[Rfam]
RNA: R2 RNA element
Organism: Acanthoscelides obtectus
RNA sequence: CUGUAACUGACCUGAAUAGUUAAGACUCCCCUCAUCAGCGCGAAGAAUAUCGCAUGCGAUGAUACCAGCGAAUGAGCGGGAUCGAGGGGGAAGGGUUUAGUCCGUAGGCACCCCGUUGGUGAAUCGGGCAUGUUCCUGAACAUUCGAUGCAUUGUACGUCAGCUCGGAGUAUCUAUGAAGAUUCCUAAUCCCCUCGUUA
Numbered sequence: 001c002u003g004u005a006a007c008u009g010a011c012c013u014g015a016a017u018a019g020u021u022a023a024g025a026c027u028c029c030c031c032u033c034a035u036c037a038g039c040g041c042g043a044a045g046a047a048u049a050u051c052g053c054a055u056g057c058g059a060u061g062a063u064a065c066c067a068g069c070g071a072a073u074g075a076g077c078g079g080g081a082u083c084g085a086g087g088g089g090g091a092a093g094g095g096u097u098u099a100g101u102c103c104g105u106a107g108g109c110a111c112c113c114c115g116u117u118g119g120u121g122a123a124u125c126g127g128g129c130a131u132g133u134u135c136c137u138g139a140a141c142a143u144u145c146g147a148u149g150c151a152u153u154g155u156a157c158g159u160c161a162g163c164u165c166g167g168a169g170u171a172u173c174u175a176u177g178a179a180g181a182u183u184c185c186u187a188a189u190c191c192c193c194u195c196g197u198u199a
Stems, first nucleotide, its partner, number of pairs: 036061002039058003067198005086193005092186003100129005109121004131171006